[Rfam]
The record is an 80-nucleotide RNA sequence from Clostridium sp. CAG:510, which matches "skipping-rope RNA" in Rfam. Rfam's curators put it in the seed alignment. Pairs were carried over by alignment from the consensus structure, which is taken from published work.

RNA sequence: GUGUUUUGAAGUAGAGAUUGUGCUGCUACGCACCCUAUGGGUCAAAAGAAAUGUGGGAAAGGGCACACCCACCAAAAUAC
Numbered sequence: 001g002u003g004u005u006u007u008g009a010a011g012u013a014g015a016g017a018u019u020g021u022g023c024u025g026c027u028a029c030g031c032a033c034c035c036u037a038u039g040g041g042u043c044a045a046a047a048g049a050a051a052u053g054u055g056g057g058a059a060a061g062g063g064c065a066c067a068c069c070c071a072c073c074a075a076a077a078u079a080c
Stems, first nucleotide, its partner, number of pairs: 001080008011029004020066005031048001032042004053072005